[Rfam]
RNA: Group II catalytic intron D1-D4-5
Organism: Enterococcus faecium
RNA sequence: AAUAACUUUACUAUCGAGAAAUCAAAUGACGGGGUAACGCCCUGAAGGGUUUCCACUGAUACUGCGACAUGCGUUAGUAGGAUGUGCAUCCAAACGCGUAUGAAGCUCGCUGAAGUCGGCAGAAGGGUACCGUAAGGAAAGACACGAUACGUAUCUACCACGCAAGUGCUCUAGAGGUAGGGUAUGUACCUGAUAUGUCGGGUGUCCUAAAA
Numbered sequence: 001a002a003u004a005a006c007u008u009u010a011c012u013a014u015c016g017a018g019a020a021a022u023c024a025a026a027u028g029a030c031g032g033g034g035u036a037a038c039g040c041c042c043u044g045a046a047g048g049g050u051u052u053c054c055a056c057u058g059a060u061a062c063u064g065c066g067a068c069a070u071g072c073g074u075u076a077g078u079a080g081g082a083u084g085u086g087c088a089u090c091c092a093a094a095c096g097c098g099u100a101u102g103a104a105g106c107u108c109g110c111u112g113a114a115g116u117c118g119g120c121a122g123a124a125g126g127g128u129a130c131c132g133u134a135a136g137g138a139a140a141g142a143c144a145c146g147a148u149a150c151g152u153a154u155c156u157a158c159c160a161c162g163c164a165a166g167u168g169c170u171c172u173a174g175a176g177g178u179a180g181g182g183u184a185u186g187u188a189c190c191u192g193a194u195a196u197g198u199c200g201g202g203u204g205u206c207c208u209a210a211a212a
Stems, first nucleotide, its partner, number of pairs: 018053006031043004054204004064110004068102005073095003077091001079089001117200005125191006131162003137158001166185008